Record summary
This 88-nucleotide RNA sequence from Cnephaeus nilssonii belongs to the Rfam family "mir-9195 microRNA precursor family". The family has 3 seed sequences and 438 matches in Rfam 15.1. Taxonomically the source falls in Cnephaeus (Eukaryota, Chordata, Mammalia, Boreoeutheria). The match comes from Rfam's covariance-model search (95 bits).
RNA sequence: AGAGGCCCAUCCGUGGCCUGGGUGGAACGCUUGCCUCAUCACCGUGGCGACGAAGCAAGCAUUCCGCCAGGCUGCUCACACUGCCCGC
Numbered sequence: 001a002g003a004g005g006c007c008c009a010u011c012c013g014u015g016g017c018c019u020g021g022g023u024g025g026a027a028c029g030c031u032u033g034c035c036u037c038a039u040c041a042c043c044g045u046g047g048c049g050a051c052g053a054a055g056c057a058a059g060c061a062u063u064c065c066g067c068c069a070g071g072c073u074g075c076u077c078a079c080a081c082u083g084c085c086c087g088c
Stems, first nucleotide, its partner, number of pairs: 004085003013075006021068007029060006039050002042047001
Dot-bracket structure: ...(((......((((((..(((((((.((((((....((.(....).))....)))))).))))))).)))))).......)))...